[Rfam]
RNA sequence: ACUGAGGCUAGAGUCACGUCUGGAUAUGAUCCGUUGUCCCGGUGUGCUAGAGCGCUCACAGAGAAAAUGUCUUUGCUUAUUCAUUGGCUGCAGCCCAUUAGUGACCCAGUCAAUCACCAACUCAGACACACGC
Numbered sequence: 001a002c003u004g005a006g007g008c009u010a011g012a013g014u015c016a017c018g019u020c021u022g023g024a025u026a027u028g029a030u031c032c033g034u035u036g037u038c039c040c041g042g043u044g045u046g047c048u049a050g051a052g053c054g055c056u057c058a059c060a061g062a063g064a065a066a067a068u069g070u071c072u073u074u075g076c077u078u079a080u081u082c083a084u085u086g087g088c089u090g091c092a093g094c095c096c097a098u099u100a101g102u103g104a105c106c107c108a109g110u111c112a113a114u115c116a117c118c119a120a121c122u123c124a125g126a127c128a129c130a131c132g133c
Base pairs, nucleotide, nucleotide: 003058004057005056006055007053008052009051012048013047015046016045017044018043019042020041023038024037025036026035071125072124075121077119083114084113085112086111087110089108090107093105095103
Rfam assigns this 133-nucleotide RNA sequence from Xiphophorus maculatus to the family "Small nucleolar RNA SNORA3/SNORA45 family". The family is grouped with related families in Rfam's "SNORA3 clan". From the family's description: The members of this family belong to the H/ACA class of snoRNAs which are thought to guide the sites of modification of uridines to pseudouridines. This family includes mouse snoMBI-28 and human homologues ACA3 (SNORA3) and ACA3-2 (SNORA45). Both ACA3 and ACA3-2 share the same host gene. MBI-28, ACA3 and ACA3-2 are all predicted to guide the pseudouridylation of residues in 28S rRNA. The family's RNA type in Rfam is H/ACA-box small nucleolar RNA. The family has 6 seed sequences and 2,080 matches in Rfam 15.1.